[Rfam]
RNA sequence: AAGAAUGCAUCCGGGUGUUCAAUUUGCCAUCUUUAUGUCGCUUGCGGCAUAGGGAUGUGCGAUUGAUCUGAGAAAUACCGGCAGAACUUGAUCUGGAUAAUACCAGCGAAAGGACAUGCUUCUUUGACUCUC
Numbered sequence: 001a002a003g004a005a006u007g008c009a010u011c012c013g014g015g016u017g018u019u020c021a022a023u024u025u026g027c028c029a030u031c032u033u034u035a036u037g038u039c040g041c042u043u044g045c046g047g048c049a050u051a052g053g054g055a056u057g058u059g060c061g062a063u064u065g066a067u068c069u070g071a072g073a074a075a076u077a078c079c080g081g082c083a084g085a086a087c088u089u090g091a092u093c094u095g096g097a098u099a100a101u102a103c104c105a106g107c108g109a110a111a112g113g114a115c116a117u118g119c120u121u122c123u124u125u126g127a128c129u130c131u132c
Stems, first nucleotide, its partner, number of pairs: 007119004011081004016075001017068001019066006087112003093106004